[Rfam]
RNA sequence: AUAACGUGAUGGGAAGCAGGCUGCUUCCCAUGUAUGAUUGAACCCAUUCUUUGGGUUCUUUUUUGU
Numbered sequence: 001a002u003a004a005c006g007u008g009a010u011g012g013g014a015a016g017c018a019g020g021c022u023g024c025u026u027c028c029c030a031u032g033u034a035u036g037a038u039u040g041a042a043c044c045c046a047u048u049c050u051u052u053g054g055g056u057u058c059u060u061u062u063u064u065g066u
Stems, first nucleotide, its partner, number of pairs: 010030009040058006
Overview
Rfam assigns this 66-nucleotide RNA from Tichodroma muraria to the family "sroE RNA". It scores 61 bits against the family's covariance model. This family consists of a number of bacterial sroE RNA genes of around 90 bases in length. sroE is found in several Enterobacterial species but its function is unknown. The organism belongs to Tichodroma, within Eukaryota. The base pairs follow the family's consensus structure, which was predicted with PFOLD.